[Rfam]
RNA sequence: UUUAUCGUGAGAUAUGCAGUGAAGGAAGCGAAACGGCAAAAGUCUGUACCGACGAACAGAAAGUACAUAAGAGGCAUAGCAAUAAGGAUGAGUAUCCACAGCAAUACGAAGUCCAAAACAGUGUUCUGAACAUGCUAUUAAAUCAGAUUAUUGUUAUGUAGAUGUACCGGUGAUAGACUGAAGGAAAAAGCAU
Numbered sequence: 001u002u003u004a005u006c007g008u009g010a011g012a013u014a015u016g017c018a019g020u021g022a023a024g025g026a027a028g029c030g031a032a033a034c035g036g037c038a039a040a041a042g043u044c045u046g047u048a049c050c051g052a053c054g055a056a057c058a059g060a061a062a063g064u065a066c067a068u069a070a071g072a073g074g075c076a077u078a079g080c081a082a083u084a085a086g087g088a089u090g091a092g093u094a095u096c097c098a099c100a101g102c103a104a105u106a107c108g109a110a111g112u113c114c115a116a117a118a119c120a121g122u123g124u125u126c127u128g129a130a131c132a133u134g135c136u137a138u139u140a141a142a143u144c145a146g147a148u149u150a151u152u153g154u155u156a157u158g159u160a161g162a163u164g165u166a167c168c169g170g171u172g173a174u175a176g177a178c179u180g181a182a183g184g185a186a187a188a189a190g191c192a193u
Base pairs, nucleotide, nucleotide: 001016003014004013005012006011028193030191037184041179042178043177044176045175046174047172048171049170050169051168063167064166065165066164067163068162074159075158076157078155079154080153081152082151083150084149086114087113088112089111092107093106094105095104

Shown here is a 193-nucleotide sequence from Pedobacter cryotolerans, a member of the family "Group II catalytic intron D1-D4-3".
It scores 112 bits against the family's covariance model.
NCBI's taxonomy places the organism under Bacteria, Pseudomonadati, Bacteroidota, Sphingobacteriia, Pedobacter.
Group II introns are found in rRNA, tRNA and mRNA of organelles in fungi, plants and protists, and also in mRNA in bacteria.
The base pairs follow the family's consensus structure.
Its family is annotated with Group II intron splicing in the Gene Ontology.